[Rfam]
This 134-nucleotide sequence from Columbina picui belongs to the Rfam family "Small nucleolar RNA SNORA57". For this family Rfam cites "Identification of 13 novel human modification guide RNAs" (Vitali et al., Nucleic Acids Res, 2003). Gene Ontology terms of the family: nucleolus and RNA processing. U99 belongs to the H/ACA class of snoRNAs which are thought to guide the sites of modification of uridines to pseudouridines, the target for this family is unknown.
RNA sequence: CCUCCCGUUCUUGGGGGGUCCGGGCGGUUCGGUGCCCGGGCCCCGUGUGUGCGGAGGUAAAACAGCAACCGGUGCAAAGUCUUCGGUGCCGGCGGCUCCGUGCGCCGGUCCUACCCUCAGGUGCCGGGACACGG
Numbered sequence: 001c002c003u004c005c006c007g008u009u010c011u012u013g014g015g016g017g018g019u020c021c022g023g024g025c026g027g028u029u030c031g032g033u034g035c036c037c038g039g040g041c042c043c044c045g046u047g048u049g050u051g052c053g054g055a056g057g058u059a060a061a062a063c064a065g066c067a068a069c070c071g072g073u074g075c076a077a078a079g080u081c082u083u084c085g086g087u088g089c090c091g092g093c094g095g096c097u098c099c100g101u102g103c104g105c106c107g108g109u110c111c112u113a114c115c116c117u118c119a120g121g122u123g124c125c126g127g128g129a130c131a132c133g134g
Stems, first nucleotide, its partner, number of pairs: 001057005015044006022037004070126006089108006